[Rfam]
RNA sequence: AACAAAUUCGGACCGUCGGUCAGCCGAGCAAAUAUCACUCGCUCGAUGGAAGAUCUUCCCGUUGUCGU
Numbered sequence: 001a002a003c004a005a006a007u008u009c010g011g012a013c014c015g016u017c018g019g020u021c022a023g024c025c026g027a028g029c030a031a032a033u034a035u036c037a038c039u040c041g042c043u044c045g046a047u048g049g050a051a052g053a054u055c056u057u058c059c060c061g062u063u064g065u066c067g068u
Base pairs, nucleotide, nucleotide: 004065006063010059011058012057015054016053017052020050021049023047025045026044027043028042029041